RNA: SAM riboswitch aptamer (S box leader)
Organism: Clostridium argentinense
RNA sequence: AACUUAUCCAGAGUGGCGGAGGAACUGGUCCUAUGAAGCCCGACAACCAGCAUUCUCAUUCGAAUGUAGUGGUGUUAAUUCCUGCAGAUUGUGAAAUCUGAGAGAUAAGGA
Numbered sequence: 001a002a003c004u005u006a007u008c009c010a011g012a013g014u015g016g017c018g019g020a021g022g023a024a025c026u027g028g029u030c031c032u033a034u035g036a037a038g039c040c041c042g043a044c045a046a047c048c049a050g051c052a053u054u055c056u057c058a059u060u061c062g063a064a065u066g067u068a069g070u071g072g073u074g075u076u077a078a079u080u081c082c083u084g085c086a087g088a089u090u091g092u093g094a095a096a097u098c099u100g101a102g103a104g105a106u107a108a109g110g111a
Stems, first nucleotide, its partner, number of pairs: 003109006013041001015040003021031003025084001027082002042076004047072002050067005080103001085100006